The family of this 77-nucleotide RNA from Sphingomonas palmae is "Makes More Granules Regulator RNA (mmgR)". By type it is a small RNA. The source organism's lineage runs through Bacteria, Pseudomonadati, Pseudomonadota, Sphingomonadaceae and Sphingomonas. Clan: suhB sRNA clan.
RNA sequence: AGGACGGGCCUUUCAGGCAUCCUCUCCUAAAAACUUUCACGGGCCGGUCAUCUGAUCGGCCCUUUUUUUUGCCUGCG
Numbered sequence: 001a002g003g004a005c006g007g008g009c010c011u012u013u014c015a016g017g018c019a020u021c022c023u024c025u026c027c028u029a030a031a032a033a034c035u036u037u038c039a040c041g042g043g044c045c046g047g048u049c050a051u052c053u054g055a056u057c058g059g060c061c062c063u064u065u066u067u068u069u070u071g072c073c074u075g076c077g
Base pairs, nucleotide, nucleotide: 008018009017010016011015041062042061043060044059045058046057047056048055049054